[Rfam]
RNA sequence: AUCGGCUUCGAGAUGGAGCGCGAUAACAAGUCCGGCAAAAUGUCUGCCUGCAACCUGCAGACGGCUUAAGACAUCCGGUAUCUGCUUUCCGUUGACCACGGAUGUACUGGCACUGUCGAGAGCAUGAUAUUAUUGAAGGUCAGGCUAAUUGCCUGACCUUUUUUGUU
Dot-bracket structure: ..(((..((......((((............................................))))..))...)))..(((.((((..(..((.(((.........)))))..)....))))..)))((.(..(((((((((((.....))))))))))).).)).
Numbered sequence: 001a002u003c004g005g006c007u008u009c010g011a012g013a014u015g016g017a018g019c020g021c022g023a024u025a026a027c028a029a030g031u032c033c034g035g036c037a038a039a040a041u042g043u044c045u046g047c048c049u050g051c052a053a054c055c056u057g058c059a060g061a062c063g064g065c066u067u068a069a070g071a072c073a074u075c076c077g078g079u080a081u082c083u084g085c086u087u088u089c090c091g092u093u094g095a096c097c098a099c100g101g102a103u104g105u106a107c108u109g110g111c112a113c114u115g116u117c118g119a120g121a122g123c124a125u126g127a128u129a130u131u132a133u134u135g136a137a138g139g140u141c142a143g144g145c146u147a148a149u150u151g152c153c154u155g156a157c158c159u160u161u162u163u164u165g166u167u
Stems, first nucleotide, its partner, number of pairs: 003077003008071002016067004080128003084123004090115001093112002096110003129166002132163001135161011